[Rfam]
Nucleotides: 262
Stems, first nucleotide, its partner, number of pairs: 007107002015102004026090006039077003049072006110158002113153003160171003187224005193218005232259004243255004
Number, partner (000 for none) and nucleotide at each position: 001000u002000a003000u004000a005000a006000a007107g008106c009000g010000a011000u012000g013000a014000u015102a016101g017100a018099g019000a020000a021000a022000a023000g024000u025000a026090u027089g028088c029087a030086g031085u032000g033000c034000u035000u036000u037000c038000g039077c040076a041075c042000a043000g044000g045000g046000a047000g048000a049072a050071g051070a052069c053068g054067c055000c056000g057000u058000a059000g060000a061000u062000u063000g064000a065000g066000a067054g068053c069052g070051u071050c072049u073000u074000u075041g076040u077039g078000a079000a080000a081000u082000u083000a084000g085031g086030c087029u088028g089027c090026a091000g092000a093000a094000g095000u096000u097000c098000a099018c100017u101016c102015u103000a104000g105000a106008g107007c108000a109000g110158g111157c112000a113153c114152c115151u116000g117000a118000a119000a120000c121000g122000u123000c124000a125000a126000u127000g128000c129000g130000g131000c132000a133000u134000g135000c136000c137000g138000c139000a140000g141000g142000g143000c144000g145000c146000g147000a148000g149000u150000a151115g152114g153113g154000a155000a156000g157111g158110c159000c160171c161170g162169g163000u164000u165000c166000c167000c168000g169162c170161c171160g172000u173000u174000a175000u176000g177000g178000g179000g180000c181000u182000a183000a184000g185000g186000g187224a188223u189222u190221a191220c192000a193218c194217u195216u196215c197214a198000u199000u200000g201000c202000c203000a204000g205000u206000u207000g208000g209000c210000a211000a212000g213000c214197u215196g216195g217194a218193g219000a220191g221190u222189a223188g224187u225000c226000c227000g228000a229000a230000u231000u232259a233258g234257g235256g236000u237000g238000g239000u240000a241000c242000c243255a244254c245253g246252g247000u248000u249000c250000u251000u252246u253245c254244g255243u256235c257234c258233c259232u260000u261000c262000a
Source information:
T-box leader: a 262-nucleotide RNA sequence from Paenibacillus sp. FSL H8-0548. NCBI's taxonomy places the organism under Bacteria, Bacillota, Bacilli, Paenibacillaceae, Paenibacillus.